[Rfam]
Rfam assigns this 529-nucleotide RNA sequence from Listeria innocua to the family "Listeria sRNA rli54". For this family Rfam cites "The Listeria transcriptional landscape from saprophytism to virulence" (Toledo-Arana et al., Nature, 2009). Rfam classes the family as a cis-regulatory element. The family's consensus secondary structure was predicted with RNAalifold. The sequence is in the family's curated seed alignment.
Nucleotides: 529
Stems, first nucleotide, its partner, number of pairs: 001261008013036004018032005051238012064223003069185007078177003082109012111162006123148005130140003188220006195213004266444005272438002274363011288303006312338002318333005367429004391425003394421006400414004445519003450487005457480001459478008491507003
Number, partner (000 for none) and nucleotide at each position: 001261g002260u003259a004258u005257u006256a007255a008254u009000a010000a011000a012000a013036u014035u015034c016033u017000u018032g019031u020030u021029u022028u023000u024000g025000a026000g027000u028022a029021a030020a031019a032018c033016a034015g035014a036013a037000u038000u039000a040000a041000c042000a043000u044000u045000u046000u047000a048000a049000a050000u051238a052237a053236a054235a055234g056233g057232a058231a059230a060229g061228u062227u063000c064223c065222u066221g067000u068000u069185u070184u071183u072182u073181u074180a075179u076000g077000a078177a079176a080175c081000a082109u083108u084107g085106u086105g087104a088103a089102g090101g091100a092099a093098u094000g095000a096000a097000u098093g099092u100091u101090u102089u103088u104087u105086c106085a107084c108083a109082a110000a111162c112161u113160c114159u115158c116157u117000u118000a119000a120000a121000a122000c123148c124147c125146a126145u127144g128000u129000u130140u131139u132138c133000a134000a135000u136000g137000a138132g139131g140130a141000u142000u143000u144127u145126g146125u147124g148123g149000u150000a151000a152000u153000a154000a155000c156000u157116g158115g159114a160113g161112a162111g163000g164000c165000u166000g167000c168000g169000u170000a171000a172000u173000u174000a175080g176079u177078u178000g179075a180074u181073a182072g183071g184070a185069a186000u187000u188220u189219a190218g191217a192216a193215a194000a195213a196212a197211g198210c199000u200000u201000c202000c203000g204000g205000a206000a207000u208000c209000u210198g211197c212196u213195u214000c215193u216192u217191u218190c219189u220188a221066u222065a223064g224000a225000a226000u227062a228061a229060c230059u231058u232057u233056u234055c235054u236053u237052u238051u239000u240000a241000c242000u243000a244000c245000g246000c247000u248000a249000u250000u251000a252000u253000a254008a255007u256006u257005a258004a259003u260002a261001c262000a263000c264000a265000a266444u267443c268442a269441g270440g271000a272438u273437g274363g275362c276361a277360g278359u279358u280357u281356u282355a283354a284353a285000a286000g287000a288303a289302u290301c291300c292299a293298u294000u295000u296000a297000g298293a299292u300291g301290g302289g303288u304000a305000a306000a307000u308000g309000a310000c311000c312338g313337g314000a315000c316000g317000a318333g319332c320331g321330u322329u323000a324000c325000a326000u327000a328000a329322a330321a331320c332319g333318c334000a335000u336000a337313c338312c339000u340000a341000a342000c343000u344000a345000a346000u347000g348000a349000a350000g351000a352000a353284u354283u355282u356281g357280a358279a359278a360277c361276u362275g363274u364000a365000c366000a367429a368428u369427g370426u371000g372000a373000a374000u375000g376000a377000c378000g379000a380000a381000a382000g383000g384000g385000u386000g387000g388000a389000u390000a391425c392424g393423a394421a395420a396419u397418g398417g399416c400414u401413u402412c403411u404000a405000a406000a407000a408000c409000a410000a411403a412402g413401a414400a415000g416399g417398c418397u419396a420395u421394u422000a423393u424392c425391g426370a427369c428368g429367u430000a431000a432000a433000g434000a435000a436000a437273c438272a439000a440270u441269u442268u443267g444266a445519g446518g447517c448000u449000g450487u451486u452485c453484a454483u455000a456000a457480a458000c459478a460477a461476u462475u463474u464473g465472a466471a467000u468000u469000a470000g471466u472465u473464c474463a475462a476461a477460u478459u479000c480457u481000a482000a483454a484453u485452g486451a487450a488000a489000a490000a491507g492506g493505a494000g495000a496000a497000a498000u499000c500000g501000u502000a503000a504000a505493u506492c507491c508000a509000g510000a511000u512000u513000u514000a515000a516000u517447g518446c519445c520000g521000g522000a523000u524000u525000u526000a527000a528000c529000u